Rfam assigns this 130-nucleotide RNA sequence to the family "Small nucleolar RNA SNORA47". A search with the family's covariance model found it, with a score of 78 bits. The family's RNA type in Rfam is H/ACA-box small nucleolar RNA. A reference for the family is Huttenhofer et al. (2001), "RNomics: an experimental approach that identifies 201 candidates for novel, small, non-messenger RNAs in mouse", EMBO J.
RNA sequence: UGGAGGACUGAGAAGGUAAGACAGUUAAACUUUAUGCUGUAUCUUACUUGUUAUAGCCUCCAAAAUGAUAAUAGUGCCAAUAGCAACUCAUGUUCCCCUUCUGACAUGAGGGAAAGCAGUACUGCAUUUG
Numbered sequence: 001u002g003g004a005g006g007a008c009u010g011a012g013a014a015g016g017u018a019a020g021a022c023a024g025u026u027a028a029a030c031u032u033u034a035u036g037c038u039g040u041a042u043c044u045u046a047c048u049u050g051u052u053a054u055a056g057c058c059u060c061c062a063a064a065a066u067g068a069u070a071a072u073a074g075u076g077c078c079a080a081u082a083g084c085a086a087c088u089c090a091u092g093u094u095c096c097c098c099u100u101c102u103g104a105c106a107u108g109a110g111g112g113a114a115a116g117c118a119g120u121a122c123u124g125c126a127u128u129u130g
Stems, first nucleotide, its partner, number of pairs: 002061005015048004019042001021040005081124003086120003094114001096112003100109002